[Rfam]
Rfam assigns this 79-nucleotide RNA sequence from Fulvimonas soli to the family "Fluoride riboswitch aptamer (crcB RNA motif)".
Lineage of the source: Bacteria > Pseudomonadota > Lysobacterales > Rhodanobacteraceae > Fulvimonas.
RNA sequence: CGACGCGACGGAGAUGGCAUUCCUCCGACCCUGCGCACCGGGUGAACCGCCGCUCGCGGCUGAUGAUGCCUGCCGACUG
Number, nucleotide and partner (000 for none) at each position: 001c000002g000003a000004c000005g000006c000007g000008a000009c000010g026011g025012a024013g023014a000015u000016g070017g069018c068019a067020u066021u065022c000023c013024u012025c011026c010027g000028a000029c000030c000031c000032u000033g000034c000035g000036c000037a000038c000039c000040g000041g000042g000043u000044g000045a000046a000047c000048c000049g060050c059051c058052g057053c000054u000055c000056g000057c052058g051059g050060c049061u000062g000063a000064u000065g021066a020067u019068g018069c017070c016071u000072g000073c000074c000075g000076a000077c000078u000079g000